RNA sequence: UAAUCUGUCGAGGGUAAAUUUCAUCUAGUUGUGGUAAACUCAUAUAUAACUGAUGAGAAUUACCCGUUAUCACAAGUCCGACUAUGUUAUUGAUUAUGAUAAACAAAGGACAACUACUAUAUGAAUAAUAACUUUUUGAGAUU
Numbered sequence: 001u002a003a004u005c006u007g008u009c010g011a012g013g014g015u016a017a018a019u020u021u022c023a024u025c026u027a028g029u030u031g032u033g034g035u036a037a038a039c040u041c042a043u044a045u046a047u048a049a050c051u052g053a054u055g056a057g058a059a060u061u062a063c064c065c066g067u068u069a070u071c072a073c074a075a076g077u078c079c080g081a082c083u084a085u086g087u088u089a090u091u092g093a094u095u096a097u098g099a100u101a102a103a104c105a106a107a108g109g110a111c112a113a114c115u116a117c118u119a120u121a122u123g124a125a126u127a128a129u130a131a132c133u134u135u136u137u138g139a140g141a142u143u
Base pairs, nucleotide, nucleotide: 004141005140006139012132014129015128019124023120024119026116027115028114029113030112
Dot-bracket structure: ...(((.....(.((...(...((.(((((.................................................................................)))))..))...)...))..)......)))..